[Rfam]
Shown here is a 318-nucleotide RNA from Spermophilus dauricus, a member of the family "7SK RNA". The family's consensus secondary structure is taken from published work. 7SK was discovered as an abundant small nuclear RNA in the mid-70s but a possible function has only recently been suggested. The match comes from Rfam's covariance-model search (274 bits).
RNA sequence: GGAUGUGAGGGCGAUCUGGCUGCGACAUCUGUCACCCCAUUGAUCGCCAGGGUUGAUUCGGCUGAUCUGGCUGGCUAGGCGGGUGUCCCCUUCCUCCCUCACCGCUCCAUGUGCGUCCCUCCCGAAGCUGCGCGCUCGGUGGAAGAGGACGACCUUCCCCCAUAGAGGAGGACCAGUCUUUGGUCAAGGGUAUACGAGUAGCUGGGCUCCCCUGCUAGAACCUCCAAACAAGCUCUCAAUAUCAUAUAAUUGUGCUUAUAAAUUGCACUUAGAAACUAGGUACUUUGAAACCAUAUCCCUUAUAUGGUUUAUAUCAUU
Numbered sequence: 001g002g003a004u005g006u007g008a009g010g011g012c013g014a015u016c017u018g019g020c021u022g023c024g025a026c027a028u029c030u031g032u033c034a035c036c037c038c039a040u041u042g043a044u045c046g047c048c049a050g051g052g053u054u055g056a057u058u059c060g061g062c063u064g065a066u067c068u069g070g071c072u073g074g075c076u077a078g079g080c081g082g083g084u085g086u087c088c089c090c091u092u093c094c095u096c097c098c099u100c101a102c103c104g105c106u107c108c109a110u111g112u113g114c115g116u117c118c119c120u121c122c123c124g125a126a127g128c129u130g131c132g133c134g135c136u137c138g139g140u141g142g143a144a145g146a147g148g149a150c151g152a153c154c155u156u157c158c159c160c161c162a163u164a165g166a167g168g169a170g171g172a173c174c175a176g177u178c179u180u181u182g183g184u185c186a187a188g189g190g191u192a193u194a195c196g197a198g199u200a201g202c203u204g205g206g207c208u209c210c211c212c213u214g215c216u217a218g219a220a221c222c223u224c225c226a227a228a229c230a231a232g233c234u235c236u237c238a239a240u241a242u243c244a245u246a247u248a249a250u251u252g253u254g255c256u257u258a259u260a261a262a263u264u265g266c267a268c269u270u271a272g273a274a275a276c277u278a279g280g281u282a283c284u285u286u287g288a289a290a291c292c293a294u295a296u297c298c299c300u301u302a303u304a305u306g307g308u309u310u311a312u313a314u315c316a317u318u
Stems, first nucleotide, its partner, number of pairs: 001108003005102007013093002018090002024087010035074002037070003042067004046062003116171002118168004122139004127135002140162003147158003223262001228259001230257003290318001293314004298307001
The literature on the family includes a 2002 paper in Curr Biol by Blencowe, "Transcription: surprising role for an elusive small nuclear RNA".